[Rfam]
RNA sequence: UUUGGGAAAUGAUGAUAAUAAUGCUGACAGAAGCACUAGCUCUGCUGAAUUAUAUUAUUUGCACGUCAGUCUGAUCCUAAA
Numbered sequence: 001u002u003u004g005g006g007a008a009a010u011g012a013u014g015a016u017a018a019u020a021a022u023g024c025u026g027a028c029a030g031a032a033g034c035a036c037u038a039g040c041u042c043u044g045c046u047g048a049a050u051u052a053u054a055u056u057a058u059u060u061g062c063a064c065g066u067c068a069g070u071c072u073g074a075u076c077c078u079a080a081a
Base pairs, nucleotide, nucleotide: 001081002080003079004078005077006076007075
RNA: Small nucleolar RNA Z122